[Rfam]
RNA sequence: AUGCUAUGAUGGUUGCAUAGUUCAGCAGAUUGAAUCAUGAAGAAAUUUAUCAUUUGCCUGACGUAUCU
Numbered sequence: 001a002u003g004c005u006a007u008g009a010u011g012g013u014u015g016c017a018u019a020g021u022u023c024a025g026c027a028g029a030u031u032g033a034a035u036c037a038u039g040a041a042g043a044a045a046u047u048u049a050u051c052a053u054u055u056g057c058c059u060g061a062c063g064u065a066u067c068u
Stems, first nucleotide, its partner, number of pairs: 001066004006038005013028004043055004
Shown here is a 68-nucleotide RNA sequence from Propithecus coquereli, a member of the family "Small nucleolar RNA SNORD77". The family is grouped with related families in Rfam's "SNORD77 clan". The match comes from Rfam's covariance-model search (83 bits). Pairs were carried over by alignment from the consensus structure, which was predicted with RNAalifold. A reference for the family is Tycowski et al. (2004), "Guide RNAs with 5' caps and novel box C/D snoRNA-like domains for modification of snRNAs in metazoa", Curr Biol. Rfam describes the family as follows. U77 belongs to the C/D family of snoRNAs. It is predicted to guide 2'O-ribose methylation of large 28S rRNA subunit at position A1521. The C/D snoRNAs U44, U47, U74, U75, U76, U78, U79, U80 and U81 share the same host gene as U77 (non-coding).